[Rfam]
RNA: Small nucleolar RNA SNORA26
RNA sequence: GUGCCCCUUUUUUGCCCACCUUGGACCAACAAUUGUCCCUGGUGAUAACACAGGGGGGCAGAGUAGCUCUCUCAUAAACCUGUAGUGAAGGUAAAAAAUCCUCAUUGCGGAUCCUGUCGGGAGAAACAAAC
Numbered sequence: 001g002u003g004c005c006c007c008u009u010u011u012u013u014g015c016c017c018a019c020c021u022u023g024g025a026c027c028a029a030c031a032a033u034u035g036u037c038c039c040u041g042g043u044g045a046u047a048a049c050a051c052a053g054g055g056g057g058g059c060a061g062a063g064u065a066g067c068u069c070u071c072u073c074a075u076a077a078a079c080c081u082g083u084a085g086u087g088a089a090g091g092u093a094a095a096a097a098a099u100c101c102u103c104a105u106u107g108c109g110g111a112u113c114c115u116g117u118c119g120g121g122a123g124a125a126a127c128a129a130a131c
Base pairs, nucleotide, nucleotide: 002060003059004058005057006056007055008054009053010052014049069123070122071121072120073119080110081109082108083107084106085105086104088102090100